The family of this 72-nucleotide RNA sequence from SAR202 cluster bacterium AD-493-K16_JPT_193m is "tRNA". On this family, see Hou, Trends Biochem Sci 1993: "The tertiary structure of tRNA and the development of the genetic code".
[Rfam]
Nucleotides: 072
Stems, first nucleotide, its partner, number of pairs: 001071007010024004026042005048064005
Number, partner (000 for none) and nucleotide at each position: 001071g002070g003069g004068c005067c006066c007065g008000u009000a010024g011023c012022u013021c014000a015000g016000u017000g018000g019000c020000a021013g022012a023011g024010c025000g026042g027041u028040c029039g030038g031000c032000u033000c034000a035000u036000a037000a038030c039029c040028g041027a042026u043000u044000g045000g046000u047000c048064g049063u050062u051061g052060g053000u054000u055000c056000g057000a058000a059000u060052c061051c062050a063049g064048c065007c066006g067005g068004g069003c070002c071001c072000a
Rfam classes the family as a transfer RNA.